[Rfam]
RNA sequence: CCAACAUGGAUAACCCAGGCGGUCACUCUCUCUGGGCUCUGUCCUAGUGGCAUAGGGUAGCAUAGGUUUCUGUCCCAUGAUGUGCAGUCACUUUCUACCAUUGGAGAUGAAGCUGGACUUUGAGUCUUUACCUGUAUAGUCCUAAAACUUCUCAGAGUCCUGUGGAUGAUGACUGGGGAGACAAACCAUGCAGGAAACAGUC
Numbered sequence: 001c002c003a004a005c006a007u008g009g010a011u012a013a014c015c016c017a018g019g020c021g022g023u024c025a026c027u028c029u030c031u032c033u034g035g036g037c038u039c040u041g042u043c044c045u046a047g048u049g050g051c052a053u054a055g056g057g058u059a060g061c062a063u064a065g066g067u068u069u070c071u072g073u074c075c076c077a078u079g080a081u082g083u084g085c086a087g088u089c090a091c092u093u094u095c096u097a098c099c100a101u102u103g104g105a106g107a108u109g110a111a112g113c114u115g116g117a118c119u120u121u122g123a124g125u126c127u128u129u130a131c132c133u134g135u136a137u138a139g140u141c142c143u144a145a146a147a148c149u150u151c152u153c154a155g156a157g158u159c160c161u162g163u164g165g166a167u168g169a170u171g172a173c174u175g176g177g178g179a180g181a182c183a184a185a186c187c188a189u190g191c192a193g194g195a196a197a198c199a200g201u202c
Base pairs, nucleotide, nucleotide: 001104002103003102004101007100008044009043010042011041012040014036015035016034018029019028021026047098048097049096050095056091059088060085062083063082064081065078131194132193133192134191135190136189137188148180149179150178151177152176153175157167158166159165160164
Dot-bracket structure: ((((..((((((.(((.((.(....).))....)))...)))))..((((.....(..((.((((............)..))).)..)..)...)))).)))))..........................(((((((..........((((((...((((...)))).......)))))).......)))))))........
Shown here is a 202-nucleotide RNA sequence from Nannospalax galili, a member of the family "Small nucleolar RNA SNORA73 family". The family's RNA type in Rfam is H/ACA-box small nucleolar RNA. Clan: snR30-U17 clan. Pairs were carried over by alignment from the consensus structure, which is taken from published work. Rfam's curators write: U17 (SNORA73A and SNORA73B) also known as E1 belongs to the H/ACA class of small nucleolar RNAs (snoRNAs). The source organism's lineage runs through Eukaryota, Teleostomi, Euteleostomi, Dipnotetrapodomorpha and Nannospalax.